[Rfam]
A member of the RNA family "Potassium channel RNA editing signal" from Laodelphax striatellus, 117 nucleotides long. By type it is a cis-regulatory element. NCBI's taxonomy places the organism under Eukaryota, Altocrustacea, Dicondylia, Delphacoidea, Laodelphax.
RNA sequence: GUUACCAGGUACGGAGACAUGGUUCCGGAAACAAUUGCUGGUAAAAUAGUGGGUGGAGUGUGCUCAUUAUCGGGAGUGCUUGUCAUAGCGCUGCCUGUUCCUGUAAUUGUAUCAAAC
Number, nucleotide and partner (000 for none) at each position: 001g117002u116003u000004a000005c000006c000007a000008g113009g000010u111011a110012c109013g108014g107015a000016g000017a104018c103019a102020u000021g100022g099023u000024u097025c000026c000027g000028g000029a000030a000031a000032c000033a000034a000035u000036u000037g000038c000039u000040g080041g079042u078043a077044a000045a000046a000047u000048a000049g000050u000051g000052g000053g065054u000055g000056g000057a000058g000059u000060g000061u000062g000063c000064u000065c053066a000067u000068u000069a000070u000071c000072g000073g000074g000075a000076g000077u043078g042079c041080u040081u000082g000083u000084c000085a000086u000087a000088g000089c000090g000091c000092u000093g000094c000095c000096u000097g024098u000099u022100c021101c000102u019103g018104u017105a000106a000107u014108u013109g012110u011111a010112u000113c008114a000115a000116a002117c001